The record is a 52-nucleotide RNA from Rhodoblastus acidophilus, which matches "ffh sRNA" in Rfam.
The base pairs follow the family's consensus structure, which is taken from published work.
It scores 48 bits against the family's covariance model.
A reference for the family is Meyer et al. (2009), "Identification of candidate structured RNAs in the marine organism 'Candidatus Pelagibacter ubique'", BMC Genomics.
RNA sequence: GACGCGGGAGGUCCCCGUCCGGCAGCGCCAUGCGCCCCCGGGCGCGUUUUGC
Numbered sequence: 001g002a003c004g005c006g007g008g009a010g011g012u013c014c015c016c017g018u019c020c021g022g023c024a025g026c027g028c029c030a031u032g033c034g035c036c037c038c039c040g041g042g043c044g045c046g047u048u049u050u051g052c
Stems, first nucleotide, its partner, number of pairs: 016044007025035004